[Rfam]
RNA sequence: AAUAAGUGCAGCCGUGAAUAUCCGUGCCCAACGUUUGACCGUCCGUCUUAUUUGAAAAAUUUGUGAAAAAUUUAAAUAUAUUUAGUCACACAUAAAGUAUUAUUCAUGUUUUAUCAUCUAAUAGCAAUAAAAAUACUAAUUAUAAAAAAAUUUCAAAUAAGAAAAACAGUCAAACGUUGAACGUGAAUAAUUAGAUCUGGGGCCCACC
Numbered sequence: 001a002a003u004a005a006g007u008g009c010a011g012c013c014g015u016g017a018a019u020a021u022c023c024g025u026g027c028c029c030a031a032c033g034u035u036u037g038a039c040c041g042u043c044c045g046u047c048u049u050a051u052u053u054g055a056a057a058a059a060u061u062u063g064u065g066a067a068a069a070a071u072u073u074a075a076a077u078a079u080a081u082u083u084a085g086u087c088a089c090a091c092a093u094a095a096a097g098u099a100u101u102a103u104u105c106a107u108g109u110u111u112u113a114u115c116a117u118c119u120a121a122u123a124g125c126a127a128u129a130a131a132a133a134u135a136c137u138a139a140u141u142a143u144a145a146a147a148a149a150a151u152u153u154c155a156a157a158u159a160a161g162a163a164a165a166a167c168a169g170u171c172a173a174a175c176g177u178u179g180a181a182c183g184u185g186a187a188u189a190a191u192u193a194g195a196u197c198u199g200g201g202g203c204c205c206a207c208c
Base pairs, nucleotide, nucleotide: 029179030178031177032176034174035173036172037171038170039169041167042166046162047161048160049159050158051157
The family of this 208-nucleotide sequence from Oryza rufipogon is "MIR812 microRNA precursor family". Gene Ontology terms of the family: RISC complex and miRNA-mediated post-transcriptional gene silencing. Taxonomically the source falls in Oryza (Eukaryota, Tracheophyta, Euphyllophyta, Mesangiospermae).